[Rfam]
RNA sequence: ACCCCAUGAUAUUAAGCCGGCAGUUGCUCGAAAUUUAACCAAGAGCAGCUGUGACUAUGACUGGGAACAUUAAAGUCGCUGAUGUGUGUAUGUUAAACAGCGUAUUCUUUACCCUGCGCGUUCGACAAAGUAAUUUCAGACCACA
Numbered sequence: 001a002c003c004c005c006a007u008g009a010u011a012u013u014a015a016g017c018c019g020g021c022a023g024u025u026g027c028u029c030g031a032a033a034u035u036u037a038a039c040c041a042a043g044a045g046c047a048g049c050u051g052u053g054a055c056u057a058u059g060a061c062u063g064g065g066a067a068c069a070u071u072a073a074a075g076u077c078g079c080u081g082a083u084g085u086g087u088g089u090a091u092g093u094u095a096a097a098c099a100g101c102g103u104a105u106u107c108u109u110u111a112c113c114c115u116g117c118g119c120g121u122u123c124g125a126c127a128a129a130g131u132a133a134u135u136u137c138a139g140a141c142c143a144c145a
Stems, first nucleotide, its partner, number of pairs: 020052008079139004091127004096122002100119004
A member of the RNA family "Small nucleolar RNA snoR639/H1" from Drosophila willistoni, 145 nucleotides long.
On this family, see Giordano et al., J Cell Biol 1999: "minifly, a Drosophila gene required for ribosome biogenesis".
The organism belongs to Sophophora, within Eukaryota.
The pairing is the family consensus, mapped onto this sequence.
snoR639 or snoH1 belongs to the H/ACA class of snoRNAs which are thought to guide the sites of modification of uridines to pseudouridines. snoH1 is found in an intron of the mfl gene in Drosophila.
Rfam links the family to the GO terms nucleolus and RNA processing.
It is annotated as an H/ACA-box small nucleolar RNA.